Overview: A member of the RNA family "Plastid-atpF group II-D1 intron" from Handroanthus impetiginosus, 53 nucleotides long. The family has 49 seed sequences and 1,372 matches in Rfam 15.1. The source organism's lineage runs through Eukaryota, Viridiplantae, Mesangiospermae, asterids and Handroanthus. About the family: Plastid atpF is a non-coding RNA (ncRNA) recognised in plastids. It has been reported in the intron group II-D1 region of ATP synthase (atpF) genes.
[Rfam]
RNA sequence: GAAUAUUUUAUCGAUAUAGAACACUCAUCUCAAUAAAAUGAUUUGAACCCUUA
Numbered sequence: 001g002a003a004u005a006u007u008u009u010a011u012c013g014a015u016a017u018a019g020a021a022c023a024c025u026c027a028u029c030u031c032a033a034u035a036a037a038a039u040g041a042u043u044u045g046a047a048c049c050c051u052u053a
Stems, first nucleotide, its partner, number of pairs: 011033001013031002016028002